Rfam assigns this 110-nucleotide sequence to the family "DUF1874 RNA".
RNA sequence: UCAGCCCUAGGUCAAGUCAAGGGGCAGGGCGGUCAUCCAGGGUAAGACCUCCCAUAAGGGGGGCGCCGCUCCUGUUCCGCUUCCAAUUGGGCUUGGUCUAGGGUGGAGGA
Numbered sequence: 001u002c003a004g005c006c007c008u009a010g011g012u013c014a015a016g017u018c019a020a021g022g023g024g025c026a027g028g029g030c031g032g033u034c035a036u037c038c039a040g041g042g043u044a045a046g047a048c049c050u051c052c053c054a055u056a057a058g059g060g061g062g063g064c065g066c067c068g069c070u071c072c073u074g075u076u077c078c079g080c081u082u083c084c085a086a087u088u089g090g091g092c093u094u095g096g097u098c099u100a101g102g103g104u105g106g107a108g109g110a
Stems, first nucleotide, its partner, number of pairs: 005103005017090003025074004029069005046064001048063005079084001

Overview
Rfam's curators put it in the seed alignment. The family's consensus secondary structure is taken from published work.